[Rfam]
RNA sequence: AGUGCUGGUAAUGCUUGCAUCAAGGGCAACAUACAGGUAUUUAUUACCUCCAAAGUGCCCCUGGGAAGGUCUGAGACAAAGGUCAAAUCAAUCAUCAUGCAGGUGACCUCAUUAAGCUUGAGGGUGGCUCACCAGAAAAUCAGGGUGGGUGAGAUGCAAUAUGCAAGAGAUGCCAUUCCCCCCCUCUGGGGAAGCAGAUGCUAUGUGUCUCACUUGACUUGGAAGAGUCCAUGACCAGCUAAUCUAAGUUAGAUGUGCAAGGUGGUGAACUUGUACACCAUAACUCAAUUCAGACUACUCUACCAACACU
Numbered sequence: 001a002g003u004g005c006u007g008g009u010a011a012u013g014c015u016u017g018c019a020u021c022a023a024g025g026g027c028a029a030c031a032u033a034c035a036g037g038u039a040u041u042u043a044u045u046a047c048c049u050c051c052a053a054a055g056u057g058c059c060c061c062u063g064g065g066a067a068g069g070u071c072u073g074a075g076a077c078a079a080a081g082g083u084c085a086a087a088u089c090a091a092u093c094a095u096c097a098u099g100c101a102g103g104u105g106a107c108c109u110c111a112u113u114a115a116g117c118u119u120g121a122g123g124g125u126g127g128c129u130c131a132c133c134a135g136a137a138a139a140u141c142a143g144g145g146u147g148g149g150u151g152a153g154a155u156g157c158a159a160u161a162u163g164c165a166a167g168a169g170a171u172g173c174c175a176u177u178c179c180c181c182c183c184c185u186c187u188g189g190g191g192a193a194g195c196a197g198a199u200g201c202u203a204u205g206u207g208u209c210u211c212a213c214u215u216g217a218c219u220u221g222g223a224a225g226a227g228u229c230c231a232u233g234a235c236c237a238g239c240u241a242a243u244c245u246a247a248g249u250u251a252g253a254u255g256u257g258c259a260a261g262g263u264g265g266u267g268a269a270c271u272u273g274u275a276c277a278c279c280a281u282a283a284c285u286c287a288a289u290u291c292a293g294a295c296u297a298c299u300c301u302a303c304c305a306a307c308a309c310u
Stems, first nucleotide, its partner, number of pairs: 001310004008303003015259001022062001024060003035049005071293005081236004092106005107123005124232004129227001144218001262281006
Description: The record is a 310-nucleotide RNA sequence from Biomphalaria glabrata, which matches "Nuclear RNase P" in Rfam. NCBI's taxonomy places the organism under Eukaryota, Mollusca, Heterobranchia, Hygrophila, Biomphalaria. The literature on the family includes a 1998 paper in Annu Rev Biochem by Frank and Pace, "Ribonuclease P: unity and diversity in a tRNA processing ribozyme". A search with the family's covariance model found it, with a score of 135 bits.